Source information: The family of this 107-nucleotide sequence from Cocos nucifera is "Small nucleolar RNA Z279/snoR105/snoR108". Rfam links the family to the GO terms RNA processing and nucleolus. Rfam's curators write: This family includes the plant snoRNAs known as Z279, snoR105 and snoR108. Its Rfam clan is "snoU13 clan". The family has 20 seed sequences and 906 matches in Rfam 15.1. The family's RNA type in Rfam is C/D-box small nucleolar RNA. The source organism's lineage runs through Eukaryota, Viridiplantae, Arecoideae, Cocoseae and Cocos. It scores 78 bits against the family's covariance model.
[Rfam]
RNA sequence: GGGACUUGAUGAGCGGUAAAUGCUCGCGCGAUGCGAGAGGGGCGUCCGCCCCUAACUAAGCCUGUUACGACUGCAGGGGCGCUCUAAUAUCUUACCAAUCUGAUCCC
Numbered sequence: 001g002g003g004a005c006u007u008g009a010u011g012a013g014c015g016g017u018a019a020a021u022g023c024u025c026g027c028g029c030g031a032u033g034c035g036a037g038a039g040g041g042g043c044g045u046c047c048g049c050c051c052c053u054a055a056c057u058a059a060g061c062c063u064g065u066u067a068c069g070a071c072u073g074c075a076g077g078g079g080c081g082c083u084c085u086a087a088u089a090u091c092u093u094a095c096c097a098a099u100c101u102g103a104u105c106c107c
Stems, first nucleotide, its partner, number of pairs: 001107004015096004023037005039085006045078002062076004